[Rfam]
RNA sequence: AUGUUAUCAAGAAAGGUGGAGGGAAUAGACCCUUUGAAGCCUUAGCAACCUCCCGAGUUUUCGGGGAAGGUGCUAAAUUCUACUUAAGUAUUUAAUAUUAAGUGCUUUAGAUAGAUAACCC
Numbered sequence: 001a002u003g004u005u006a007u008c009a010a011g012a013a014a015g016g017u018g019g020a021g022g023g024a025a026u027a028g029a030c031c032c033u034u035u036g037a038a039g040c041c042u043u044a045g046c047a048a049c050c051u052c053c054c055g056a057g058u059u060u061u062c063g064g065g066g067a068a069g070g071u072g073c074u075a076a077a078u079u080c081u082a083c084u085u086a087a088g089u090a091u092u093u094a095a096u097a098u099u100a101a102g103u104g105c106u107u108u109a110g111a112u113a114g115a116u117a118a119c120c121c
Stems, first nucleotide, its partner, number of pairs: 003119006013043005021032003026082004044074004049070002051066004078113001083110002086107009
Dot-bracket structure: ..((((((....(((((...(((..[[[[)))......)))))((((.((((((........))))..))))))...(]]]]((.(((((((((....))))))))).))..)))))))..
RNA: SAM riboswitch aptamer (S box leader)
Organism: Algibacter luteus